Source information
This 75-nucleotide RNA sequence from Oculatella sp. LEGE 06141 belongs to the Rfam family "Cyano-1 RNA". The base pairs follow the family's consensus structure, which is taken from published work. NCBI's taxonomy places the organism under Bacteria, Bacillati, Cyanobacteriota, Cyanophyceae, Oculatella. Rfam classes the family as a small RNA. It scores 48 bits against the family's covariance model.

RNA sequence: GUACAUGUGAGGAGUGAAAUUUAACGAAAAGCCCCUGGAGUCGAAACACGGUCAGACGUCCAGGGGCUUUUUUAA
Number, nucleotide and partner (000 for none) at each position: 001g000002u000003a000004c000005a000006u000007g000008u000009g000010a000011g000012g000013a000014g000015u000016g000017a000018a000019a000020u000021u000022u000023a000024a000025c000026g000027a000028a070029a069030a068031g067032c066033c000034c000035c063036u062037g061038g060039a059040g057041u056042c055043g000044a000045a000046a000047c000048a000049c000050g000051g000052u000053c000054a000055g042056a041057c040058g000059u039060c038061c037062a036063g035064g000065g000066g032067c031068u030069u029070u028071u000072u000073u000074a000075a000